[Rfam]
RNA sequence: GCAAAAUUAUUUUUGCAAUAUGUUCCUGAAUAUGUAAGCCAAGUGUAUUGGGAGCAUUUUGCAUCCAUAGUUUUGUAUC
Number, nucleotide and partner (000 for none) at each position: 001g000002c000003a000004a073005a072006a071007u070008u069009a068010u067011u000012u000013u000014u063015g062016c061017a060018a059019u000020a057021u056022g055023u054024u053025c052026c051027u050028g000029a049030a048031u047032a046033u045034g044035u000036a000037a000038g000039c000040c000041a000042a000043g000044u034045g033046u032047a031048u030049u029050g027051g026052g025053a024054g023055c022056a021057u020058u000059u018060u017061g016062c015063a014064u000065c000066c000067a010068u009069a008070g007071u006072u005073u004074u000075g000076u000077a000078u000079c000
The family of this 79-nucleotide RNA from Loxodonta africana is "mir-450 microRNA precursor family". A reference for the family is Chiang et al. (2010), "Mammalian microRNAs: experimental evaluation of novel and previously annotated genes", Genes Dev. Pairs were carried over by alignment from the consensus structure, which was predicted with RNAalifold.